Shown here is a 173-nucleotide sequence from Streptomyces albireticuli, a member of the family "Actinobacteria sRNA Ms_IGR-5". The source organism's lineage runs through Bacteria, Bacillati, Actinomycetota, Kitasatosporales and Streptomyces. Pairs were carried over by alignment from the consensus structure.
[Rfam]
RNA sequence: ACACGAGAAGGGAGGUGGUUCGGGACAUGAUUUCUUUCCGGACGCGUGAGGUGACUGCGGGCUAGCGCCCGUCGUCGCGCCAAGCGCAGCGCCGGCCACGCCGGCCAAUCCCAAGCAGUCACCCGAUCCGUGGGCCGCCGAGUCGUCCGCUCGGCACCGUCGCGCCGCACCCG
Numbered sequence: 001a002c003a004c005g006a007g008a009a010g011g012g013a014g015g016u017g018g019u020u021c022g023g024g025a026c027a028u029g030a031u032u033u034c035u036u037u038c039c040g041g042a043c044g045c046g047u048g049a050g051g052u053g054a055c056u057g058c059g060g061g062c063u064a065g066c067g068c069c070c071g072u073c074g075u076c077g078c079g080c081c082a083a084g085c086g087c088a089g090c091g092c093c094g095g096c097c098a099c100g101c102c103g104g105c106c107a108a109u110c111c112c113a114a115g116c117a118g119u120c121a122c123c124c125g126a127u128c129c130g131u132g133g134g135c136c137g138c139c140g141a142g143u144c145g146u147c148c149g150c151u152c153g154g155c156a157c158c159g160u161c162g163c164g165c166c167g168c169a170c171c172c173g
Stems, first nucleotide, its partner, number of pairs: 015058005060106004065101002069095003073091003129173002132170001134168002137155006